Rfam assigns this 167-nucleotide RNA sequence from Medicago truncatula to the family "MIR2619 microRNA precursor family". Taxonomically the source falls in Medicago (Eukaryota, Viridiplantae, Streptophytina, Embryophyta). The family's consensus secondary structure was predicted with RNAalifold.
RNA sequence: AAACAGCCCCCUAUGUUUUGAUUCUUUGGCAGUUUUGGACCCCCAGUCCAUUGUUGACUCGGUCAACGCUGACGUGGCACCCUAAGUGAGGUGUCACGUGUCAAUUUUUUUUUUUUUUGUCUUGGGGGUCCAAAACUGCUAAAGAAUCAAAACAUAGGAGACUGUUU
Numbered sequence: 001a002a003a004c005a006g007c008c009c010c011c012u013a014u015g016u017u018u019u020g021a022u023u024c025u026u027u028g029g030c031a032g033u034u035u036u037g038g039a040c041c042c043c044c045a046g047u048c049c050a051u052u053g054u055u056g057a058c059u060c061g062g063u064c065a066a067c068g069c070u071g072a073c074g075u076g077g078c079a080c081c082c083u084a085a086g087u088g089a090g091g092u093g094u095c096a097c098g099u100g101u102c103a104a105u106u107u108u109u110u111u112u113u114u115u116u117u118u119g120u121c122u123u124g125g126g127g128g129u130c131c132a133a134a135a136c137u138g139c140u141a142a143a144g145a146a147u148c149a150a151a152a153c154a155u156a157g158g159a160g161a162c163u164g165u166u167u
Base pairs, nucleotide, nucleotide: 001167002166004164005163006162008160012156013155014154015153016152017151018150019149020148021147022146023145024144025143026142027141028140029139030138031137032136033135034134035133036132037131038130039129040128041127042126043125044124045123072099073098075096076095077094078093079092080091081090